RNA: Nitrogen stress-induced RNA 1
RNA sequence: UGGUAGAUGCACCCUGAUAACUAACUCCCCUGGUAGGCUCAUACAUACUAGGGGUUUUUUGA
Numbered sequence: 001u002g003g004u005a006g007a008u009g010c011a012c013c014c015u016g017a018u019a020a021c022u023a024a025c026u027c028c029c030c031u032g033g034u035a036g037g038c039u040c041a042u043a044c045a046u047a048c049u050a051g052g053g054g055u056u057u058u059u060u061g062a
Stems, first nucleotide, its partner, number of pairs: 002013003027054009037044001